[Rfam]
RNA sequence: GUGAGGUGAUGACGAAGUUUAUCCAUUCUCAGAGUGUAGUGGUGCUGUCCUCCUGUAGCACCCUGAUUCCUGUUCUAGGGUCUGGGUGUUGUGCAGCCUUCAGACACUUCAGUCUCUCAGUGUUCUGCUGGGGGGGUUCUGUGGUGUGUGGUUGGCUGCCUGCAGGAGUGAAAUGGUACCAGCAGGGUUGGAGACCCUUCUUAUGGGGCUCCAUCCUCACUAAGAUGAUGGUUGAUGUCUGAUCAC
Dot-bracket structure: .........(((....((.(..(((.((.(...((...((.(((((((.((((((((.(((((.(..((((.....)))).).)))))....((((((.......((...(.((((((((((...)))))))))).)......))........)))))).)))))))..)..)))))).).)).(((.((((..((((......)))).)))).))).))...)..)))))...).))....))).
A member of the RNA family "Small nucleolar RNA SNORD17" from Upupa epops, 246 nucleotides long.
NCBI's taxonomy places the organism under Eukaryota, Euteleostomi, Sarcopterygii, Amniota, Upupa.
Rfam links the family to the GO terms nucleolus and RNA processing.
The snoRNA HBI-43 belongs to the C/D family of snoRNAs, guiding 2'O-ribose methylation at position U3797 of the 28S rRNA. Pseudouridylation in position U3797 is predicted to be guided by the H/ACA snoRNA ACA48.
On this family, see Huttenhofer et al., EMBO J 2001: "RNomics: an experimental approach that identifies 201 candidates for novel, small, non-messenger RNAs in mouse".
A search with the family's covariance model found it, with a score of 112 bits.
Rfam classes the family as a C/D-box small nucleolar RNA.